[Rfam]
RNA sequence: AGGAAAUGAUGACAUCAAUUGGUCCGUGUUUCUGAUUUCACUGUGAUUGAUUCUUCAAAUUUCAUUAUCUGAUCCU
Numbered sequence: 001a002g003g004a005a006a007u008g009a010u011g012a013c014a015u016c017a018a019u020u021g022g023u024c025c026g027u028g029u030u031u032c033u034g035a036u037u038u039c040a041c042u043g044u045g046a047u048u049g050a051u052u053c054u055u056c057a058a059a060u061u062u063c064a065u066u067a068u069c070u071g072a073u074c075c076u
Base pairs, nucleotide, nucleotide: 001076002075003074004073
The record is a 76-nucleotide RNA from Apostasia shenzhenica, which matches "Small nucleolar RNA SNORD18" in Rfam.
Gene Ontology terms of the family: RNA processing and nucleolus.
The family has 16 seed sequences and 2,622 matches in Rfam 15.1.
The base pairs follow the family's consensus structure, which was predicted with PFOLD.
It scores 46 bits against the family's covariance model.
The literature on the family includes a 1993 paper in Nucleic Acids Res by Prislei et al., "Two different snoRNAs are encoded in introns of amphibian and human L1 ribosomal protein genes".
It is annotated as a C/D-box small nucleolar RNA.